[Rfam]
RNA: Bacterial RNase P class A
Organism: Flavobacterium sp. CS20
RNA sequence: AAAACAAGCCGUCUUAUCGCACUGACGAUUAAUGUCAGUAAGGAAAGUCCGGACACCAUAGUGCAGAUAGCGGGUAACGCCCGUCAUCUUGAUGAAUAAUCAGGAUUGGACAAGUGCAACAGAAAGCAAGUACAGUUAGGCUGUAGUGAAAUCAGGUAAACUCUAUGCGGUGCAAUACCAUGUAAACCAAGGCUUGAAAGUGGCACGCUUGAUCUUGGAGGGUUGGUAGCUUGAGAUUUAGAGCAAUCUAAAUUCUAGAUAAAUGAUAAGAUUCCGUCAAGGCGGAAACAGAAUCCGGCUUAUAGGCUUGUUUUAUUU
Number, nucleotide and partner (000 for none) at each position: 001a314002a313003a312004a311005c310006a309007a308008g307009c306010c305011g303012u271013c270014u269015u268016a267017u266018c265019g000020c000021a039022c038023u037024g036025a035026c034027g033028a000029u000030u000031a000032a000033u027034g026035u025036c024037a023038g022039u021040a000041a000042g000043g000044a000045a301046a300047g299048u000049c298050c297051g296052g295053a294054c172055a171056c170057c169058a000059u000060a000061g206062u205063g204064c203065a000066g168067a166068u165069a164070g084071c083072g082073g081074g080075u000076a000077a000078c000079g000080c074081c073082c072083g071084u070085c108086a106087u105088c104089u103090u102091g101092a100093u099094g000095a000096a000097u000098a000099a093100u092101c091102a090103g089104g088105a087106u086107u000108g085109g163110a162111c000112a000113a000114g161115u160116g157117c156118a000119a000120c000121a000122g000123a000124a000125a000126g000127c000128a000129a000130g000131u145132a144133c143134a142135g141136u140137u000138a000139g000140g136141c135142u134143g133144u132145a131146g000147u000148g000149a000150a000151a000152u000153c000154a000155g000156g117157u116158a000159a000160a115161c114162u110163c109164u069165a068166u067167g000168c066169g057170g056171u055172g054173c000174a000175a000176u228177a227178c226179c225180a000181u000182g000183u000184a000185a000186a000187c218188c217189a216190a215191g214192g000193c000194u000195u000196g000197a000198a210199a209200g208201u207202g000203g064204c063205a062206c061207g201208c200209u199210u198211g000212a000213u000214c191215u190216u189217g188218g187219a000220g000221g000222g000223u000224u000225g179226g178227u177228a176229g000230c000231u000232u000233g000234a000235g254236a253237u252238u251239u250240a249241g248242a247243g000244c000245a000246a000247u242248c241249u240250a239251a238252a237253u236254u235255c000256u000257a000258g000259a000260u000261a000262a000263a000264u000265g018266a017267u016268a015269a014270g013271a012272u000273u000274c000275c000276g000277u000278c000279a000280a000281g000282g000283c000284g000285g000286a000287a000288a000289c000290a000291g000292a000293a000294u053295c052296c051297g050298g049299c047300u046301u045302a000303u011304a000305g010306g009307c008308u007309u006310g005311u004312u003313u002314u001315a000316u000317u000318u000